[Rfam]
RNA sequence: CUGUGUCUUGCUUCAACAGUGUUUGGACAGCACAC
Number, nucleotide and partner (000 for none) at each position: 001c000002u034003g033004u032005g031006u000007c030008u029009u000010g028011c000012u027013u026014c025015a024016a023017c021018a000019g000020u000021g017022u000023u016024u015025g014026g013027a012028c010029a008030g007031c005032a004033c003034a002035c000
A member of the RNA family "Iron response element I" from Dipodomys ordii, 35 nucleotides long. The source organism's lineage runs through Eukaryota, Craniata, Castorimorpha, Heteromyidae and Dipodomys. Rfam 15.1 lists 6,829 matches to the family in 599 species. Rfam's curators put it in the seed alignment.